This 146-nucleotide RNA sequence from Ziziphus jujuba belongs to the Rfam family "Small nucleolar RNA snoR136". Rfam classes the family as an H/ACA-box small nucleolar RNA. For this family Rfam cites "Mining small RNA sequencing data: a new approach to identify small nucleolar RNAs in Arabidopsis" (Chen and Wu, Nucleic Acids Res, 2009).

[Rfam]
RNA sequence: UGGGCUUCACGCAAUCGGUUCGGUUCUGAAUUUACAUGAAUUUAUUUUGUUUGUGUUUUUUUAUUCGUGAAGCUAAAAAAAAUACCUGUUCCUCUCGCUAUCCAUUGCGGCCUUAUGUCGCAUUUGGACGUUGGGGAACUACAUUC
Numbered sequence: 001u002g003g004g005c006u007u008c009a010c011g012c013a014a015u016c017g018g019u020u021c022g023g024u025u026c027u028g029a030a031u032u033u034a035c036a037u038g039a040a041u042u043u044a045u046u047u048u049g050u051u052u053g054u055g056u057u058u059u060u061u062u063a064u065u066c067g068u069g070a071a072g073c074u075a076a077a078a079a080a081a082a083u084a085c086c087u088g089u090u091c092c093u094c095u096c097g098c099u100a101u102c103c104a105u106u107g108c109g110g111c112c113u114u115a116u117g118u119c120g121c122a123u124u125u126g127g128a129c130g131u132u133g134g135g136g137a138a139c140u141a142c143a144u145u146c
Stems, first nucleotide, its partner, number of pairs: 001077001003074003008069004013064001017061001029057003033053001036050003088139007096130002101128004110118002